This 90-nucleotide RNA from Carboxydocella thermautotrophica belongs to the Rfam family "c-di-GMP-I riboswitch aptamer". Clan: c-di-GMP_I riboswitch clan. Its family is annotated with cyclic-di-GMP binding in the Gene Ontology. Taxonomically the source falls in Carboxydocella thermautotrophica (Bacteria, Bacillati, Eubacteriales, Carboxydocella). From the family's description: GEMM was predicted in a large-scale screen for bacterial structured RNA regulatory elements. A search with the family's covariance model found it, with a score of 78 bits. The literature on the family includes a 2007 paper in Nucleic Acids Res by Weinberg et al., "Identification of 22 candidate structured RNAs in bacteria using the CMfinder comparative genomics pipeline".
[Rfam]
RNA sequence: GAAGACAACGGGCAAACCAGGCGAAAGCCUGGGGCGCAAAGCCAUGGGUCUAAGGUUCCCGUUGGGAACUAUGAUUGCCAGGCUGCUCAU
Numbered sequence: 001g002a003a004g005a006c007a008a009c010g011g012g013c014a015a016a017c018c019a020g021g022c023g024a025a026a027g028c029c030u031g032g033g034g035c036g037c038a039a040a041g042c043c044a045u046g047g048g049u050c051u052a053a054g055g056u057u058c059c060c061g062u063u064g065g066g067a068a069c070u071a072u073g074a075u076u077g078c079c080a081g082g083c084u085g086c087u088c089a090u
Base pairs, nucleotide, nucleotide: 012037013036017032018031019030020029021028022027040084041083042082043081045080046079047078048075049074050073055069056068057067058066059065060064
Dot-bracket structure: ...........((...((((((....))))))...))..((((.((((((....((((((...))))))...)))..)))))))......